[Rfam]
RNA sequence: CUGUGACUUGAUUCAAGUAAUCCAGGAUAGGCUGUUCAGUGAAACUCUGGCCUGUCCUUGACUACUUGGCUCUGGAGGCAG
Numbered sequence: 001c002u003g004u005g006a007c008u009u010g011a012u013u014c015a016a017g018u019a020a021u022c023c024a025g026g027a028u029a030g031g032c033u034g035u036u037c038a039g040u041g042a043a044a045c046u047c048u049g050g051c052c053u054g055u056c057c058u059u060g061a062c063u064a065c066u067u068g069g070c071u072c073u074g075g076a077g078g079c080a081g
Base pairs, nucleotide, nucleotide: 002080003079004078007075008074010072011071014068015067016066017065018064019063021061022060024058025057026056027055028054029053030052031051032050033049
The family of this 81-nucleotide RNA sequence from Scyliorhinus torazame is "mir-26 microRNA precursor family". The base pairs follow the family's consensus structure, which was predicted with RNAalifold. The source organism's lineage runs through Eukaryota, Bilateria, Craniata, Chondrichthyes and Scyliorhinus. It scores 73 bits against the family's covariance model.